The family of this 110-nucleotide RNA sequence from Glycine soja is "MIR1520 microRNA precursor family". Clan: MIR1520 microRNA precursor clan. The base pairs follow the family's consensus structure, which was predicted with RNAalifold.
Nucleotides: 110
Stems, first nucleotide, its partner, number of pairs: 020099004025094002029090003035084002038081003
Number, partner (000 for none) and nucleotide at each position: 001000c002000u003000u004000u005000u006000a007000u008000u009000g010000g011000a012000u013000g014000u015000u016000g017000a018000u019000c020099g021098u022097c023096a024000u025094g026093u027000g028000u029090u030089g031088u032000g033000c034000g035084u036083u037000u038081a039080u040079u041000g042000g043000a044000c045000g046000u047000u048000a049000a050000u051000u052000u053000c054000a055000u056000g057000c058000a059000a060000u061000u062000a063000a064000u065000u066000a067000a068000u069000g070000u071000c072000a073000a074000c075000c076000u077000c078000c079040a080039a081038u082000a083036a084035a085000a086000u087000u088031g089030c090029a091000a092000c093026a094025u095000g096023u097022g098021g099020c100000g101000g102000u103000c104000a105000a106000c107000u108000u109000c110000c